[Rfam]
Ruegeria cis2 sRNA: a 153-nucleotide RNA sequence from Rhodovulum imhoffii.
Pairs were carried over by alignment from the consensus structure, which was predicted with RNAfold.
RNA sequence: GUUCGUGAAAUACGGAGAGUAAUUCAAGAAUGUAAAGCCCCGGCACUGGUCGAUGGUGUGGAACAGUGGAUUCCAGUCGAACAUGGGCAACACGCUGCUGGGCAGCGAAUUCGCCACGAACAUCUUGCCGGAGAAAAUCAUGUUCGCACGCCG
Numbered sequence: 001g002u003u004c005g006u007g008a009a010a011u012a013c014g015g016a017g018a019g020u021a022a023u024u025c026a027a028g029a030a031u032g033u034a035a036a037g038c039c040c041c042g043g044c045a046c047u048g049g050u051c052g053a054u055g056g057u058g059u060g061g062a063a064c065a066g067u068g069g070a071u072u073c074c075a076g077u078c079g080a081a082c083a084u085g086g087g088c089a090a091c092a093c094g095c096u097g098c099u100g101g102g103c104a105g106c107g108a109a110u111u112c113g114c115c116a117c118g119a120a121c122a123u124c125u126u127g128c129c130g131g132a133g134a135a136a137a138u139c140a141u142g143u144u145c146g147c148a149c150g151c152c153g
Stems, first nucleotide, its partner, number of pairs: 002035002006032002011027001014024002037057003041052004064153001066151003071081003086147001089144004094139001098133002101129005107123001110119002

By type it is a small RNA. Lineage of the source: Bacteria > Pseudomonadati > Pseudomonadota > Alphaproteobacteria > Rhodovulum.